[Rfam]
Shown here is an 85-nucleotide RNA sequence from Candidatus Erwinia dacicola, a member of the family "TrxA 5' UTR thermometer". For this family Rfam cites "Temperature-responsive in vitro RNA structurome of Yersinia pseudotuberculosis" (Righetti et al., Proc Natl Acad Sci U S A, 2016). By type it is an RNA thermoregulator. Its family is annotated with response to temperature stimulus and regulation of translation in the Gene Ontology. The base pairs follow the family's consensus structure. From the family's description: Involved in protection against oxidative stress.
RNA sequence: AGCCUGAUGCUGCUUAAUGCUACAUCAAAGGUAAAGAUAAUCCCUUGGAGUAAACAUGAGCGAUAAAAUUACCCACGUGACCGAU
Numbered sequence: 001a002g003c004c005u006g007a008u009g010c011u012g013c014u015u016a017a018u019g020c021u022a023c024a025u026c027a028a029a030g031g032u033a034a035a036g037a038u039a040a041u042c043c044c045u046u047g048g049a050g051u052a053a054a055c056a057u058g059a060g061c062g063a064u065a066a067a068a069u070u071a072c073c074c075a076c077g078u079g080a081c082c083g084a085u
Stems, first nucleotide, its partner, number of pairs: 008065002011062002014059003021052003025048004030043002069084002074079001